[Rfam]
RNA sequence: UAUCAUAAAUAUUUAUUAAUCCAUAUAAUCCUAAUAAUGUGGUUUAGGAGUUUCUACAGGAAGCCGUAAAUUUCCCGUCUAUGGAUAAAUGUUUUAUAACU
Number, nucleotide and partner (000 for none) at each position: 001u000002a000003u000004c000005a000006u000007a000008a000009a000010u000011a000012u000013u000014u000015a000016u000017u000018a000019a086020u085021c084022c083023a082024u081025a080026u000027a000028a000029u049030c048031c047032u046033a045034a044035u000036a000037a000038u000039g000040u000041g000042g000043u000044u034045u033046a032047g031048g030049a029050g000051u000052u000053u000054c000055u000056a000057c077058a000059g075060g074061a073062a072063g071064c000065c000066g000067u000068a000069a000070a000071u063072u062073u061074c060075c059076c000077g057078u000079c000080u025081a024082u023083g022084g021085a020086u019087a000088a000089a000090u000091g000092u000093u000094u000095u000096a000097u000098a000099a000100c000101u000
Annotation: The record is a 101-nucleotide sequence from Clostridium sp. cel8, which matches "Purine riboswitch aptamer" in Rfam. Lineage of the source: Bacteria > Bacillati > Bacillota > Eubacteriales > Clostridium.